[Rfam]
RNA sequence: CCCAAGCCCGAGCUCUUUCCACUGAGCCACUACUACUAAGAUAGAUAUAGCACUGGGGUAGAUAUAUAGAGAAGCAGCGUGGCGCAGUGGAAAGAGCACGGGCUUUGGA
Number, nucleotide and partner (000 for none) at each position: 001c000002c108003c107004a000005a104006g103007c102008c101009c100010g099011a000012g097013c096014u095015c094016u093017u092018u091019c090020c089021a088022c087023u086024g085025a000026g083027c082028c081029a080030c079031u000032a000033c000034u000035a000036c000037u000038a000039a000040g000041a000042u000043a000044g000045a000046u000047a000048u000049a000050g000051c000052a000053c000054u000055g000056g000057g000058g000059u000060a000061g000062a000063u000064a000065u000066a000067u000068a000069g000070a000071g000072a000073a000074g000075c000076a000077g000078c000079g030080u029081g028082g027083c026084g000085c024086a023087g022088u021089g020090g019091a018092a017093a016094g015095a014096g013097c012098a000099c010100g009101g008102g007103c006104u005105u000106u000107g003108g002109a000

A member of the RNA family "mir-130 microRNA precursor family" from Ornithorhynchus anatinus, 109 nucleotides long. Rfam 15.1 lists 2,580 matches to the family in 658 species. The organism belongs to Ornithorhynchus, within Eukaryota. Its family is annotated with RISC complex and miRNA-mediated post-transcriptional gene silencing in the Gene Ontology.